[Rfam]
RNA sequence: UUACAAUUAAAGGAUAUUUCUUGCCGGUGAAUGUGACUCAGAAAUGUCUUUUAAUUGUUUAGU
Numbered sequence: 001u002u003a004c005a006a007u008u009a010a011a012g013g014a015u016a017u018u019u020c021u022u023g024c025c026g027g028u029g030a031a032u033g034u035g036a037c038u039c040a041g042a043a044a045u046g047u048c049u050u051u052u053a054a055u056u057g058u059u060u061a062g063u
Stems, first nucleotide, its partner, number of pairs: 003058008012049010024035001

The record is a 63-nucleotide RNA from Sphaeramia orbicularis, which matches "mir-7552 microRNA precursor family" in Rfam. The family has 4 seed sequences and 220 matches in Rfam 15.1. The source organism's lineage runs through Eukaryota, Craniata, Osteoglossocephalai, Gobiaria and Sphaeramia.